[Rfam]
RNA sequence: AACUGCUAUAAUGGCCAUACCAGAAGCGUUCAGGCUGUGGCCCUUGUCAGACUCCCGUGAGUCUGCACGUUCUGCU
Numbered sequence: 001a002a003c004u005g006c007u008a009u010a011a012u013g014g015c016c017a018u019a020c021c022a023g024a025a026g027c028g029u030u031c032a033g034g035c036u037g038u039g040g041c042c043c044u045u046g047u048c049a050g051a052c053u054c055c056c057g058u059g060a061g062u063c064u065g066c067a068c069g070u071u072c073u074g075c076u
Stems, first nucleotide, its partner, number of pairs: 011044001013042004019076001021074005026038003048065007
This 76-nucleotide RNA sequence from Alligator mississippiensis belongs to the Rfam family "Mammalian CPEB3 ribozyme". The source organism's lineage runs through Eukaryota, Chordata, Sauropsida, Alligatorinae and Alligator. It scores 53 bits against the family's covariance model.